[Rfam]
RNA sequence: GAAUUUUGUGUCUAGGGUUCCAGCUUAAUCUGUGGAUUGAGUGUUUGGUCCAAGAGAUACAGCCAGCAGGGCCUAUAUAUUGCCUAGUCUGGUUCACGGAGGGAUAAAAGCCCGGGAGAA
Numbered sequence: 001g002a003a004u005u006u007u008g009u010g011u012c013u014a015g016g017g018u019u020c021c022a023g024c025u026u027a028a029u030c031u032g033u034g035g036a037u038u039g040a041g042u043g044u045u046u047g048g049u050c051c052a053a054g055a056g057a058u059a060c061a062g063c064c065a066g067c068a069g070g071g072c073c074u075a076u077a078u079a080u081u082g083c084c085u086a087g088u089c090u091g092g093u094u095c096a097c098g099g100a101g102g103g104a105u106a107a108a109a110g111c112c113c114g115g116g117a118g119a120a
Base pairs, nucleotide, nucleotide: 007061008060009059010058011057012056015051016050020048021047022045023042024041025040026039027038028037062093063092064091065090066089095115097118101113102112103111